[Rfam]
RNA: FMN riboswitch aptamer (RFN element)
Organism: Alkaliphilus oremlandii
RNA sequence: AUGAUUCUUCAGGGCAGGGUGAAAUUCCCGACCGGCGGUAUAGUCCGCGACUCGAUAUACAUCGAUUGAACUGGUGAGAUUCCAGUACCGACAGUAAAGUCUGGAUGGGAGAAGAAAAAG
Numbered sequence: 001a002u003g004a005u006u007c008u009u010c011a012g013g014g015c016a017g018g019g020u021g022a023a024a025u026u027c028c029c030g031a032c033c034g035g036c037g038g039u040a041u042a043g044u045c046c047g048c049g050a051c052u053c054g055a056u057a058u059a060c061a062u063c064g065a066u067u068g069a070a071c072u073g074g075u076g077a078g079a080u081u082c083c084a085g086u087a088c089c090g091a092c093a094g095u096a097a098a099g100u101c102u103g104g105a106u107g108g109g110a111g112a113a114g115a116a117a118a119a120g
Stems, first nucleotide, its partner, number of pairs: 005116006017029003031100002033090002035048004043088002052065002070086005092103003